[Rfam]
RNA: Iron response element I
Organism: Phyllostomus discolor
RNA sequence: CUGUCCCUUGCUUCAACAGUGAUUGGAUGGACAG
Numbered sequence: 001c002u003g004u005c006c007c008u009u010g011c012u013u014c015a016a017c018a019g020u021g022a023u024u025g026g027a028u029g030g031a032c033a034g
Stems, first nucleotide, its partner, number of pairs: 001034004007030002010028001012027005017021001